[Rfam]
Nucleotides: 157
Base pairs, nucleotide, nucleotide: 004021005020007018008017009016033064034063035062036061037060041056042055043054045052073151074150076148077147079145083142084141085140086139099135100134101133102132103131104130105129106128107127
Number, partner (000 for none) and nucleotide at each position: 001000u002000a003000u004021u005020g006000g007018c008017u009016u010000a011000g012000u013000u014000a015000a016009g017008a018007g019000g020005c021004a022000a023000a024000a025000a026000u027000c028000a029000a030000u031000c032000a033064g034063a035062u036061c037060a038000u039000c040000a041056a042055u043054a044000c045052u046000u047000u048000c049000u050000g051000u052045a053000u054043u055042g056041u057000u058000u059000u060037u061036g062035g063034u064033c065000g066000c067000u068000u069000c070000g071000g072000c073151u074150u075000u076148a077147g078000c079145u080000u081000u082000u083142u084141u085140u086139u087000u088000u089000u090000u091000a092000a093000u094000a095000u096000u097000g098000u099135g100134g101133a102132g103131g104130a105129g106128c107127u108000u109000u110000a111000a112000u113000u114000u115000u116000c117000u118000c119000u120000a121000a122000a123000u124000c125000a126000a127107a128106g129105c130104u131103u132102c133101u134100u135099c136000c137000c138000c139086a140085a141084a142083a143000g144000a145079g146000c147077u148076u149000c150074a151073g152000a153000c154000a155000u156000a157000a
Small nucleolar RNA U19: a 157-nucleotide sequence from Microthlaspi erraticum.
Pairs were carried over by alignment from the consensus structure, which was predicted with WAR.
Lineage of the source: Eukaryota > Viridiplantae > Streptophytina > eudicotyledons > Microthlaspi.
A search with the family's covariance model found it, with a score of 48 bits.